[Rfam]
Rfam assigns this 85-nucleotide RNA from Danio rerio to the family "mir-142 microRNA precursor family".
For this family Rfam cites "Small RNA expression and strain specificity in the rat" (Linsen et al., BMC Genomics, 2010).
The family's consensus secondary structure was predicted with RNAalifold.
Rfam's curators put it in the seed alignment.
RNA sequence: CAGUGCAGUCAUCCAUAAAGUAGAAAGCACUACUAAACCCCUCGCCACAGUGUAGUGUUUCCUACUUUAUGGAUGAGUGUACUGU
Number, nucleotide and partner (000 for none) at each position: 001c000002a000003g000004u000005g000006c000007a000008g000009u000010c000011a000012u000013c000014c071015a070016u069017a068018a067019a066020g065021u064022a063023g062024a000025a000026a059027g058028c057029a056030c055031u054032a053033c052034u000035a000036a000037a000038c000039c000040c000041c000042u000043c000044g000045c000046c000047a000048c000049a000050g000051u000052g033053u032054a031055g030056u029057g028058u027059u026060u000061c000062c023063u022064a021065c020066u019067u018068u017069a016070u015071g014072g000073a000074u000075g000076a000077g000078u000079g000080u000081a000082c000083u000084g000085u000